[Rfam]
RNA: mir-8799 microRNA precursor family
RNA sequence: AAGGGGAGUGCUGGAUCCUGGGCUGUGUCCCCCUGCACUCUGGGCUCCAGGGCCUGCGCGCUGGAAUUGUGCUCUGGGGGCCGCGCAGCCCCCU
Numbered sequence: 001a002a003g004g005g006g007a008g009u010g011c012u013g014g015a016u017c018c019u020g021g022g023c024u025g026u027g028u029c030c031c032c033c034u035g036c037a038c039u040c041u042g043g044g045c046u047c048c049a050g051g052g053c054c055u056g057c058g059c060g061c062u063g064g065a066a067u068u069g070u071g072c073u074c075u076g077g078g079g080g081c082c083g084c085g086c087a088g089c090c091c092c093c094u
Stems, first nucleotide, its partner, number of pairs: 001094001003092004010086002012083003017078002020075003024071004028065002032063001033060001035059002038056001042054001044053003